[Rfam]
RNA sequence: GUCCAUGAUGAGUGAUCCGUUUCAUUGAGAUGUAGAUUUCCUCAAGACCCUGUUUCCCAGGGUGAACCUACUUGAGGCGCUACAUUGUUCAUGACUUUACUGGAUCUACGUGAGAC
Numbered sequence: 001g002u003c004c005a006u007g008a009u010g011a012g013u014g015a016u017c018c019g020u021u022u023c024a025u026u027g028a029g030a031u032g033u034a035g036a037u038u039u040c041c042u043c044a045a046g047a048c049c050c051u052g053u054u055u056c057c058c059a060g061g062g063u064g065a066a067c068c069u070a071c072u073u074g075a076g077g078c079g080c081u082a083c084a085u086u087g088u089u090c091a092u093g094a095c096u097u098u099a100c101u102g103g104a105u106c107u108a109c110g111u112g113a114g115a116c
Base pairs, nucleotide, nucleotide: 001116002115003114048062049061050060051059052058
RNA: Small nucleolar RNA Z278
Organism: Gossypium raimondii